[Rfam]
Notes
Glycine riboswitch aptamer: a 91-nucleotide sequence from Xanthomonas boreopolis. It scores 52 bits against the family's covariance model.
Nucleotides: 091
Stems, first nucleotide, its partner, number of pairs: 006086003011083003020033004035073003038069002042067003048060004
Number, partner (000 for none) and nucleotide at each position: 001000c002000a003000c004000a005000g006086c007085c008084g009000a010000u011083c012082u013081g014000g015000a016000g017000a018000g019000a020033g021032g022031c023030c024000u025000u026000c027000g028000a029000u030023g031022g032021c033020c034000c035073g036072c037071c038069g039068a040000a041000g042067g043066g044065g045000c046000a047000c048060g049059c050058g051057g052000c053000c054000a055000c056000g057051c058050c059049g060048c061000c062000g063000a064000a065044c066043u067042c068039u069038c070000a071037g072036g073035c074000a075000a076000a077000a078000g079000g080000a081013c082012a083011g084008c085007g086006g087000g088000a089000g090000c091000g